[Rfam]
A member of the RNA family "6S / SsrS RNA" from Anaeromicrobium sediminis, 183 nucleotides long.
Lineage of the source: Bacteria > Bacillota > Clostridia > Peptostreptococcales > Anaeromicrobium.
The match comes from Rfam's covariance-model search (51 bits).
RNA sequence: AUAUAUCUGGGGUAUUCGUGUAGCUCUUAUUUUGAACCUACAGUUAAGAAACGGGAGUUCAAAAUUUAGAUGUGAAAUUGACUUAUGAGACCGAAUCGGCAAGGACAAAGAAGUAUCUGUGAGGGCACCCACCUAUCGUUGAGAUAGGUAUCAAAAUUAGAGUAGCGGUAUUUUGGAAUAUUA
Number, nucleotide and partner (000 for none) at each position: 001a000002u000003a000004u000005a000006u177007c176008u175009g174010g173011g172012g171013u170014a169015u168016u000017c167018g166019u165020g000021u000022a000023g000024c000025u000026c000027u000028u000029a157030u156031u155032u154033u153034g152035a151036a149037c148038c147039u000040a000041c000042a000043g000044u000045u000046a000047a000048g000049a000050a000051a000052c000053g130054g129055g128056a000057g126058u125059u124060c123061a000062a000063a000064a120065u000066u000067u119068a118069g117070a116071u115072g114073u113074g000075a000076a000077a000078u000079u000080g000081a000082c000083u000084u000085a000086u000087g000088a000089g000090a000091c000092c000093g000094a000095a000096u000097c000098g000099g000100c000101a000102a000103g000104g000105a000106c000107a000108a000109a000110g000111a000112a000113g073114u072115a071116u070117c069118u068119g067120u064121g000122a000123g060124g059125g058126c057127a000128c055129c054130c053131a000132c000133c000134u000135a000136u000137c000138g000139u000140u000141g000142a000143g000144a000145u000146a000147g038148g037149u036150a000151u035152c034153a033154a032155a031156a030157u029158u000159a000160g000161a000162g000163u000164a000165g019166c018167g017168g015169u014170a013171u012172u011173u010174u009175g008176g007177a006178a000179u000180a000181u000182u000183a000